[Rfam]
RNA: Small nucleolar RNA SNORD46
RNA sequence: AACGUGGGUGAUGAAAACUUGACCUUAGGUAGGCUCUUUUUUGUGCUGUUUUGGUACAAAGCUUUGAGCUUAUCAAUGGUAGGACUUGUCAUAGUUACACUGACACGUU
Number, nucleotide and partner (000 for none) at each position: 001a109002a108003c107004g106005u105006g104007g000008g000009u000010g000011a000012u000013g000014a000015a000016a000017a000018c000019u000020u000021g000022a000023c000024c000025u000026u000027a000028g000029g000030u000031a000032g000033g000034c000035u000036c000037u000038u000039u000040u000041u000042u000043g000044u000045g000046c000047u000048g000049u000050u000051u000052u000053g000054g000055u000056a000057c000058a000059a000060a000061g000062c000063u000064u000065u000066g000067a000068g000069c000070u000071u000072a000073u000074c000075a000076a000077u000078g000079g000080u000081a000082g000083g000084a000085c000086u000087u000088g000089u000090c000091a000092u000093a000094g000095u000096u000097a000098c000099a000100c000101u000102g000103a000104c006105a005106c004107g003108u002109u001